[Rfam]
RNA sequence: AUAGUUCCUCGUUAGCAUGAGGCGUUUGCACAAACACAGGCUACUGCCCGGAAACGUCGAAAGACGCCAAUGGGUAGACCAGGUAUUGCCGGAUUAAGGCCUUACCCAAGGUAGCUGGUCAGAUGACCUACGUUGUGCACUGCUGAAAACCUACGAGUGGGGAAUUGA
Numbered sequence: 001a002u003a004g005u006u007c008c009u010c011g012u013u014a015g016c017a018u019g020a021g022g023c024g025u026u027u028g029c030a031c032a033a034a035c036a037c038a039g040g041c042u043a044c045u046g047c048c049c050g051g052a053a054a055c056g057u058c059g060a061a062a063g064a065c066g067c068c069a070a071u072g073g074g075u076a077g078a079c080c081a082g083g084u085a086u087u088g089c090c091g092g093a094u095u096a097a098g099g100c101c102u103u104a105c106c107c108a109a110g111g112u113a114g115c116u117g118g119u120c121a122g123a124u125g126a127c128c129u130a131c132g133u134u135g136u137g138c139a140c141u142g143c144u145g146a147a148a149a150c151c152u153a154c155g156a157g158u159g160g161g162g163a164a165u166u167g168a
Stems, first nucleotide, its partner, number of pairs: 005164006011154002013097001015150001018148001021144003027139007040115005046075005055066004082106004088100003117128003

Rfam assigns this 168-nucleotide RNA sequence from Geobacter sp. SVR to the family "M-box riboswitch aptamer (ykoK leader)". Gene Ontology terms of the family: regulation of gene expression and response to magnesium ion. Lineage of the source: Bacteria > Pseudomonadati > Desulfuromonadia > Geobacterales > Geobacter. Rfam's curators write: M-box riboswitch, also know as ykoK leader is described as a metaloregulatory RNA that sense divalent metals and function as a genetic control element of genes related to divalent metal transport in bacteria. It was first reported upstream of the B.subtilis ykoK gene and genes with related functions in other bacteria. Rfam 15.1 lists 1,095 matches to the family in 932 species. It scores 144 bits against the family's covariance model.